[Rfam]
This 122-nucleotide sequence from Vibrio sediminis belongs to the Rfam family "Phenylalanine leader peptide". The match comes from Rfam's covariance-model search (78 bits). The base pairs follow the family's consensus structure, which was predicted with CMfinder. NCBI's taxonomy places the organism under Bacteria, Pseudomonadati, Gammaproteobacteria, Vibrionales, Vibrio. The family has 71 seed sequences and 379 matches in Rfam 15.1. The literature on the family includes a 1978 paper in Proc Natl Acad Sci U S A by Zurawski et al., "Nucleotide sequence of the leader region of the phenylalanine operon of Escherichia coli".
RNA sequence: GCAAAUGAUUUCCCUGUUCCGUUUUGAUUUCUUUUUUAUCUCCUAAUUAACUGGGGGCUGAAACGUUUUAGAAAAAUAAAUCAAAAACGAACAGAAAGCCUCCCACGGGAGGCUUUUUUAAU
Numbered sequence: 001g002c003a004a005a006u007g008a009u010u011u012c013c014c015u016g017u018u019c020c021g022u023u024u025u026g027a028u029u030u031c032u033u034u035u036u037u038a039u040c041u042c043c044u045a046a047u048u049a050a051c052u053g054g055g056g057g058c059u060g061a062a063a064c065g066u067u068u069u070a071g072a073a074a075a076a077u078a079a080a081u082c083a084a085a086a087a088c089g090a091a092c093a094g095a096a097a098g099c100c101u102c103c104c105a106c107g108g109g110a111g112g113c114u115u116u117u118u119u120a121a122u
Stems, first nucleotide, its partner, number of pairs: 016092004022086009032076003036072002042055004056067003095116009